The record is a 128-nucleotide sequence from Carlito syrichta, which matches "Small nucleolar RNA SNORA28" in Rfam.

RNA sequence: AAGGGACAUCUAUCUCAGGAAAGGAAAAUGUUUUAAGUUAAAUAAUAGGACUUGCUAUAGCAAGGAAGUCGAACCUAUUCUUAUGUCUUCAUUUCCAUGAGACAAGUCAUUAUAUAGACUUAAACAGU
Numbered sequence: 001a002a003g004g005g006a007c008a009u010c011u012a013u014c015u016c017a018g019g020a021a022a023g024g025a026a027a028a029u030g031u032u033u034u035a036a037g038u039u040a041a042a043u044a045a046u047a048g049g050a051c052u053u054g055c056u057a058u059a060g061c062a063a064g065g066a067a068g069u070c071g072a073a074c075c076u077a078u079u080c081u082u083a084u085g086u087c088u089u090c091a092u093u094u095c096c097a098u099g100a101g102a103c104a105a106g107u108c109a110u111u112a113u114a115u116a117g118a119c120u121u122a123a124a125c126a127g128u
Stems, first nucleotide, its partner, number of pairs: 009050002011040002014037001017034004066121005072115001076114003081109001083107002089102002092099001

The family is grouped with related families in Rfam's "SNORA28 clan". It is annotated as an H/ACA-box small nucleolar RNA. Gene Ontology terms of the family: nucleolus and RNA processing. ACA28 is a member of the H/ACA class of snoRNA that guide the sites of modification of uridines to pseudouridines. Rfam 15.1 lists 922 matches to the family in 535 species. The family's consensus secondary structure was predicted with RNAfold.